[Rfam]
Shown here is a 600-nucleotide part of an RNA from Chloracidobacterium thermophilum, a member of the family "Bacterial large subunit ribosomal RNA". It is one of the family's seed sequences. The base pairs follow the family's consensus structure, which is taken from published work.

RNA sequence: UAGUACCGGUGAAGAUGCCGGUUUCCCGCAUCUAGACGGAAAGACCCCGUGCACCUUUACUACAGCCUGAUAUUGAACUGAAAAGUUUUUUGCGCAGGAUAGGUGGGAGACUGCGAAGCUGGGCUUUCGGGUUCAGUGGAGUCGCCGGUGAGAUACCACCCUGAAAGCUUUUGAGUUCUAAUCUGCCCGCAAGGGAGUGACAGUGUCAGGUGGGUAGUUUGACUGGGGCGGUCGCCUCCUAAAAAGUAACGGAGGCUCCCAAAGGUUGGCUCAAGGUGUUUGGAAAUCACCUGUAGAGUGUAAAGGCAUAAGCCAGCUUGACUGUGAGACAGACAAGUCGAACAGAGACGAAAGUCGGGCUUAGUGAUCCGGCGGUUCCGAAUGGGAGGGCCGUCGCUCAAAGGAUAAAAGGUACGCCGGGGAUAACAGGCUGAUCGCCGCCAAGAGUCCACAUCGACGCGGCGGUUUGGCACCUCGAUGUCGGCUCAUCGCAUCCUGGGGCUGAAGAAGGUCCCAAGGGUUCGGCUGUUCGCCGAUUAAAGCGGUACGUGAGCUGGGUUUAGAACGUCGCGAGACAGUUCGGUCCCUAUCUGGUGUGGG
Numbered sequence: 001u002a003g004u005a006c007c008g009g010u011g012a013a014g015a016u017g018c019c020g021g022u023u024u025c026c027c028g029c030a031u032c033u034a035g036a037c038g039g040a041a042a043g044a045c046c047c048c049g050u051g052c053a054c055c056u057u058u059a060c061u062a063c064a065g066c067c068u069g070a071u072a073u074u075g076a077a078c079u080g081a082a083a084a085g086u087u088u089u090u091u092g093c094g095c096a097g098g099a100u101a102g103g104u105g106g107g108a109g110a111c112u113g114c115g116a117a118g119c120u121g122g123g124c125u126u127u128c129g130g131g132u133u134c135a136g137u138g139g140a141g142u143c144g145c146c147g148g149u150g151a152g153a154u155a156c157c158a159c160c161c162u163g164a165a166a167g168c169u170u171u172u173g174a175g176u177u178c179u180a181a182u183c184u185g186c187c188c189g190c191a192a193g194g195g196a197g198u199g200a201c202a203g204u205g206u207c208a209g210g211u212g213g214g215u216a217g218u219u220u221g222a223c224u225g226g227g228g229c230g231g232u233c234g235c236c237u238c239c240u241a242a243a244a245a246g247u248a249a250c251g252g253a254g255g256c257u258c259c260c261a262a263a264g265g266u267u268g269g270c271u272c273a274a275g276g277u278g279u280u281u282g283g284a285a286a287u288c289a290c291c292u293g294u295a296g297a298g299u300g301u302a303a304a305g306g307c308a309u310a311a312g313c314c315a316g317c318u319u320g321a322c323u324g325u326g327a328g329a330c331a332g333a334c335a336a337g338u339c340g341a342a343c344a345g346a347g348a349c350g351a352a353a354g355u356c357g358g359g360c361u362u363a364g365u366g367a368u369c370c371g372g373c374g375g376u377u378c379c380g381a382a383u384g385g386g387a388g389g390g391c392c393g394u395c396g397c398u399c400a401a402a403g404g405a406u407a408a409a410a411g412g413u414a415c416g417c418c419g420g421g422g423a424u425a426a427c428a429g430g431c432u433g434a435u436c437g438c439c440g441c442c443a444a445g446a447g448u449c450c451a452c453a454u455c456g457a458c459g460c461g462g463c464g465g466u467u468u469g470g471c472a473c474c475u476c477g478a479u480g481u482c483g484g485c486u487c488a489u490c491g492c493a494u495c496c497u498g499g500g501g502c503u504g505a506a507g508a509a510g511g512u513c514c515c516a517a518g519g520g521u522u523c524g525g526c527u528g529u530u531c532g533c534c535g536a537u538u539a540a541a542g543c544g545g546u547a548c549g550u551g552a553g554c555u556g557g558g559u560u561u562a563g564a565a566c567g568u569c570g571c572g573a574g575a576c577a578g579u580u581c582g583g584u585c586c587c588u589a590u591c592u593g594g595u596g597u598g599g600g
Stems, first nucleotide, its partner, number of pairs: 005022005025600008034592003038587002046421004051417002053413005059218004066210007075178005081172010092161001102160005109143003118137008183197002186195003221233004234256006257402001259359002265317006271297002274292005298307002322345004328339003347356003370396007378389002430471003434468001435465007445455002482557001483555004487549001488546005495520002498515006522536005563581004567576003